The record is a 309-nucleotide sequence from Klebsiella sp. RIT-PI-d, which matches "MicL sRNA" in Rfam. Rfam's curators write: mRNA-interfering complementary RNA regulator of Lpp. Transcription factor sigma E dependant sRNA. Together with MicA and RybB it allows sigma E to repress the synthesis of all abundant outer membrane proteins in response to stress. The organism belongs to Klebsiella, within Bacteria. It scores 96 bits against the family's covariance model.
RNA sequence: UAUGGCCGGAUCUGGCGUCCGCGCUGGCAACCUCGAUAUGCUGCUUAAUGCAGGCGUAAAAGAGGUUCACAGCUCCGCCGGUGGGUGGAACCCUUCACCAAUGCGCUACCGCAACCCUGGAUUAUCCAUGUCGACGGACCCGAACGCAGAUGAGUAUCAGCGUUAUGCGGUAAACGGCAGGGCGGUGGCAGAAAUGAAGGCGAUCGUUACCCGCUUUAGCCAACAGAAUUAACGAUUUUUACCGCGCAUCAUGUCGCCCAUAUGAUGCUUGUUUGUACCAGGCCCCUGCAUUUACAGGGGCCUUUUUUU
Numbered sequence: 001u002a003u004g005g006c007c008g009g010a011u012c013u014g015g016c017g018u019c020c021g022c023g024c025u026g027g028c029a030a031c032c033u034c035g036a037u038a039u040g041c042u043g044c045u046u047a048a049u050g051c052a053g054g055c056g057u058a059a060a061a062g063a064g065g066u067u068c069a070c071a072g073c074u075c076c077g078c079c080g081g082u083g084g085g086u087g088g089a090a091c092c093c094u095u096c097a098c099c100a101a102u103g104c105g106c107u108a109c110c111g112c113a114a115c116c117c118u119g120g121a122u123u124a125u126c127c128a129u130g131u132c133g134a135c136g137g138a139c140c141c142g143a144a145c146g147c148a149g150a151u152g153a154g155u156a157u158c159a160g161c162g163u164u165a166u167g168c169g170g171u172a173a174a175c176g177g178c179a180g181g182g183c184g185g186u187g188g189c190a191g192a193a194a195u196g197a198a199g200g201c202g203a204u205c206g207u208u209a210c211c212c213g214c215u216u217u218a219g220c221c222a223a224c225a226g227a228a229u230u231a232a233c234g235a236u237u238u239u240u241a242c243c244g245c246g247c248a249u250c251a252u253g254u255c256g257c258c259c260a261u262a263u264g265a266u267g268c269u270u271g272u273u274u275g276u277a278c279c280a281g282g283c284c285c286c287u288g289c290a291u292u293u294a295c296a297g298g299g300g301c302c303u304u305u306u307u308u309u
Base pairs, nucleotide, nucleotide: 003280004279005278009274010273012271014269015268016040017039018038022035023034026032044083046081050078051077053076054075056073057072062067085129086128087127088126090123093120094119102114103112104111105110131143132142133141144163145162146161147160149158150157166267167266170263171262172261177258181255182254183253184252185250188247189246195244196243199240200239202237203236204235205234206233207232208231281302282301283300284299285298286297287296288295